RNA sequence: CAAUAGCAUAUGGGUUUUUAAGGGUGGCGGCAAUCCCUCCGAAAGGAGGUGAGUGCUGUGAUGACGACAUUUCAUACGUUAGUGCUAAUGAUUGCAUUUGGCGGACUGAUUGUAUCAAUCGUCAACGUGUCGCAGAAGGAAAAUUGCGAUAAUGAUAAGAAAUAACCACCCUUAAGCGUGCGAGCGGUAGGGUGGCAGUUGUAACCUCAUAUUGUGAGCCGCCCCUCUUAAAGGGAGCCCUGUUAUUGCAGACCGUGGGUGUUCAAGCACUCGCG
Number, nucleotide and partner (000 for none) at each position: 001c248002a247003a246004u245005a244006g000007c242008a241009u000010a000011u221012g220013g219014g000015u217016u216017u176018u175019u174020a173021a172022g171023g170024g169025u000026g166027g000028c000029g000030g000031c000032a054033a000034u048035c000036c046037c045038u044039c000040c000041g000042a000043a000044a038045g037046g036047a000048g034049g000050u000051g000052a000053g000054u032055g000056c000057u000058g000059u000060g000061a000062u000063g131064a130065c129066g128067a000068c000069a000070u000071u000072u000073c000074a000075u000076a000077c090078g089079u000080u000081a000082g000083u000084g000085c000086u000087a000088a000089u078090g077091a000092u000093u000094g000095c000096a000097u000098u000099u000100g123101g122102c121103g120104g000105a000106c000107u000108g000109a000110u000111u000112g000113u000114a000115u000116c000117a000118a000119u000120c103121g102122u101123c100124a000125a000126c000127g000128u066129g065130u064131c063132g000133c000134a000135g000136a000137a000138g000139g000140a000141a000142a000143a000144u000145u000146g000147c000148g000149a000150u000151a000152a000153u000154g000155a000156u000157a000158a000159g000160a000161a000162a000163u000164a000165a000166c026167c000168a000169c024170c023171c022172u021173u020174a019175a018176g017177c000178g000179u000180g000181c000182g000183a000184g000185c000186g206187g205188u204189a000190g000191g000192g000193u000194g000195g000196c000197a000198g000199u000200u000201g000202u000203a000204a188205c187206c186207u000208c000209a000210u000211a000212u000213u000214g000215u000216g016217a015218g000219c013220c012221g011222c000223c235224c234225c233226u000227c000228u000229u000230a000231a000232a000233g225234g224235g223236a000237g000238c000239c000240c000241u008242g007243u000244u005245a004246u003247u002248g001249c000250a000251g000252a000253c000254c275255g274256u273257g272258g271259g270260u269261g268262u267263u000264c000265a000266a000267g262268c261269a260270c259271u258272c257273g256274c255275g254
The family of this 275-nucleotide RNA sequence from Shouchella lonarensis is "BsrG". The family's RNA type in Rfam is small RNA. About the family: bsrE, bsrG and bsrH pair through intermolecular interactions with antisense sRNAs. They form type I toxin/antitoxin system that includes an mRNA encoding for a short, toxic peptide (bsrE, bsrG and bsrH) and an antitoxin that is comprised of an antisense RNA. bsrG encodes a 39-amino-acid toxin, and the 180 nucleotide antisense sRNA called SR4 acts as the antitoxin (they overlap by 123 nucleotides). The base pairs follow the family's consensus structure, which was predicted with WAR. The match comes from Rfam's covariance-model search (73 bits). NCBI's taxonomy places the organism under Bacteria, Bacillati, Bacilli, Bacillaceae, Shouchella.